[Rfam]
Shown here is a 46-nucleotide sequence from Geotalea uraniireducens, a member of the family "Acido-Lenti-1 RNA". Taxonomically the source falls in Geotalea uraniireducens (Bacteria, Pseudomonadati, Geobacterales, Geotalea). Rfam classes the family as a small RNA.

RNA sequence: CCGUGGGAUGAAUCCCACGGCUAACAUCAAGCGCCCCGACGGGGCU
Numbered sequence: 001c002c003g004u005g006g007g008a009u010g011a012a013u014c015c016c017a018c019g020g021c022u023a024a025c026a027u028c029a030a031g032c033g034c035c036c037c038g039a040c041g042g043g044g045c046u
Stems, first nucleotide, its partner, number of pairs: 001020008033045005